[Rfam]
RNA sequence: UGUGUAGAGACAAGAAAUGUGUCGUGUUCUCUUUCUCUCGGUAAAUUUCUCGCCUCUCACAAU
Dot-bracket structure: .(((.((((.(.(((((...(((................)))...))))).).)))))))...
Numbered sequence: 001u002g003u004g005u006a007g008a009g010a011c012a013a014g015a016a017a018u019g020u021g022u023c024g025u026g027u028u029c030u031c032u033u034u035c036u037c038u039c040g041g042u043a044a045a046u047u048u049c050u051c052g053c054c055u056c057u058c059a060c061a062a063u
Stems, first nucleotide, its partner, number of pairs: 002060003006057004011052001013050005021042003